[Rfam]
RNA sequence: CCCGAUAAAGCUAAACCCUUCGCAAGGAGGGGACGGAAAGCGGCGGGUCUUACCAAGAAGAUGGCCGAGCUGCCGAAG
Numbered sequence: 001c002c003c004g005a006u007a008a009a010g011c012u013a014a015a016c017c018c019u020u021c022g023c024a025a026g027g028a029g030g031g032g033a034c035g036g037a038a039a040g041c042g043g044c045g046g047g048u049c050u051u052a053c054c055a056a057g058a059a060g061a062u063g064g065c066c067g068a069g070c071u072g073c074c075g076a077a078g
Base pairs, nucleotide, nucleotide: 001078003075004074011036012035016031017030018029019028020027021026034064039071040070041069044067045066046065047062048061049060